[Rfam]
RNA sequence: UGGUACCUGACGGGAACGAUCGUAUAGUACGAGAGGAACUACGAUCGGCUGCCACUGGUGUACCGGUCGUCCGACAGGGCGAGUGCCGGGCAGCUACGCAGCAUGGGGUAAAGGCUGAAAGCAUCUAAGCCUGAAACCCUCCUGGAAAAGAGGUACCGCUAAGACCACCCGUAUAAGACGGGUUCGAUAGACUCGGGGUGUGCGCGCCAAGGUAACGAGGCGUUCAGCCCGCGAGCACUAACAGGUCAAAG
Numbered sequence: 001u002g003g004u005a006c007c008u009g010a011c012g013g014g015a016a017c018g019a020u021c022g023u024a025u026a027g028u029a030c031g032a033g034a035g036g037a038a039c040u041a042c043g044a045u046c047g048g049c050u051g052c053c054a055c056u057g058g059u060g061u062a063c064c065g066g067u068c069g070u071c072c073g074a075c076a077g078g079g080c081g082a083g084u085g086c087c088g089g090g091c092a093g094c095u096a097c098g099c100a101g102c103a104u105g106g107g108g109u110a111a112a113g114g115c116u117g118a119a120a121g122c123a124u125c126u127a128a129g130c131c132u133g134a135a136a137c138c139c140u141c142c143u144g145g146a147a148a149a150g151a152g153g154u155a156c157c158g159c160u161a162a163g164a165c166c167a168c169c170c171g172u173a174u175a176a177g178a179c180g181g182g183u184u185c186g187a188u189a190g191a192c193u194c195g196g197g198g199u200g201u202g203c204g205c206g207c208c209a210a211g212g213u214a215a216c217g218a219g220g221c222g223u224u225c226a227g228c229c230c231g232c233g234a235g236c237a238c239u240a241a242c243a244g245g246u247c248a249a250a251g
Base pairs, nucleotide, nucleotide: 001158002157003156004155005154006153007152008151011144012143013142014141017047018046019045020044021043022042023041024040048102049101050100051099052098056096057095058094063089064088065087066086067085068081069080070079071078072077105139106138107137112132113131114130115129116128163247164246165245166244167183168182169181170180171179188240189239190238192235193234194233195232196230197229198228204223205222206221207220208219211216

Archaeal large subunit ribosomal RNA: a 251-nucleotide part of an RNA from Salinarchaeum sp. IM2453.